Annotation:
The family of this 129-nucleotide RNA from Myotis lucifugus is "Small nucleolar RNA SNORA11". Pairs were carried over by alignment from the consensus structure, which was predicted with RNAalifold. Rfam classes the family as an H/ACA-box small nucleolar RNA. About the family: U107 (SNORA11) is a member of the H/ACA class of snoRNAs that guide the sites of modification of uridines to pseudouridines. This snoRNA was identified by RT-PCR from blood cells and its expression confirmed by Northern blot analysis. There is no predicted target for this guide snRNA. A reference for the family is Gu et al. (2005), "A novel experimental approach for systematic identification of box H/ACA snoRNAs from eukaryotes", Nucleic Acids Res.

RNA sequence: UGGGUGUGGAGAGAGCAGAGCGCCUGAAGAAUGGCUUCUCUGUGUACAACACAUCCAACAGCAACUUGGGCUUACUCCUCACGGGUGGCAGAAUACUAUAGCCUUCCUGUGACAUUACGCCCUUUACGC
Numbered sequence: 001u002g003g004g005u006g007u008g009g010a011g012a013g014a015g016c017a018g019a020g021c022g023c024c025u026g027a028a029g030a031a032u033g034g035c036u037u038c039u040c041u042g043u044g045u046a047c048a049a050c051a052c053a054u055c056c057a058a059c060a061g062c063a064a065c066u067u068g069g070g071c072u073u074a075c076u077c078c079u080c081a082c083g084g085g086u087g088g089c090a091g092a093a094u095a096c097u098a099u100a101g102c103c104u105u106c107c108u109g110u111g112a113c114a115u116u117a118c119g120c121c122c123u124u125u126a127c128g129c
Stems, first nucleotide, its partner, number of pairs: 002056007013045001015043006022035003068122004076114001080111002083104003088099001090097002